[Rfam]
RNA sequence: ACACGGGAAAGGAGGUGGUCCAGCAGAUGAAUAGCUAUUGGACUCGUGAGGUGGCUGCUCGCUAGCCGCCUGCUCGUCGCAGGACCUAGUGACAACCUGGUUCGCCGGCCGGUCGGCUGGCAAAUCUCGAGCAGUCACCCGGCCCGUGGGCUCUCAGGACUUGUCCGCCUGAGCCGUGCAUCGUGUACGGAAGUGGCCCACGGGCCGUUCCAU
Numbered sequence: 001a002c003a004c005g006g007g008a009a010a011g012g013a014g015g016u017g018g019u020c021c022a023g024c025a026g027a028u029g030a031a032u033a034g035c036u037a038u039u040g041g042a043c044u045c046g047u048g049a050g051g052u053g054g055c056u057g058c059u060c061g062c063u064a065g066c067c068g069c070c071u072g073c074u075c076g077u078c079g080c081a082g083g084a085c086c087u088a089g090u091g092a093c094a095a096c097c098u099g100g101u102u103c104g105c106c107g108g109c110c111g112g113u114c115g116g117c118u119g120g121c122a123a124a125u126c127u128c129g130a131g132c133a134g135u136c137a138c139c140c141g142g143c144c145c146g147u148g149g150g151c152u153c154u155c156a157g158g159a160c161u162u163g164u165c166c167g168c169c170u171g172a173g174c175c176g177u178g179c180a181u182c183g184u185g186u187a188c189g190g191a192a193g194u195g196g197c198c199c200a201c202g203g204g205c206c207g208u209u210c211c212a213u
Stems, first nucleotide, its partner, number of pairs: 014059006061121006068114001070112002074108003140207013154172005
RNA: Actinobacteria sRNA Ms_IGR-5